[Rfam]
RNA sequence: GUGCAUUCUUGUAAACCCCCUAGUUGCUAAUGUUAGCUUCUGGGACACGAAAGGAUGCUAGAUUAAACUAGAGAUCCAAAGCUGAGGGCCGCAUGUCAGUGGCUCUUGGUUAUUUCAGCUCUAGGACAU
Numbered sequence: 001g002u003g004c005a006u007u008c009u010u011g012u013a014a015a016c017c018c019c020c021u022a023g024u025u026g027c028u029a030a031u032g033u034u035a036g037c038u039u040c041u042g043g044g045a046c047a048c049g050a051a052a053g054g055a056u057g058c059u060a061g062a063u064u065a066a067a068c069u070a071g072a073g074a075u076c077c078a079a080a081g082c083u084g085a086g087g088g089c090c091g092c093a094u095g096u097c098a099g100u101g102g103c104u105c106u107u108g109g110u111u112a113u114u115u116c117a118g119c120u121c122u123a124g125g126a127c128a129u
Base pairs, nucleotide, nucleotide: 003058004057005056006055009050010049011048019044020043021042022041023040026037027036068124069123070122071121072120080111081110082109083108084107085106086105088103089102092099
RNA: Small nucleolar RNA SNORA14
Organism: Hucho hucho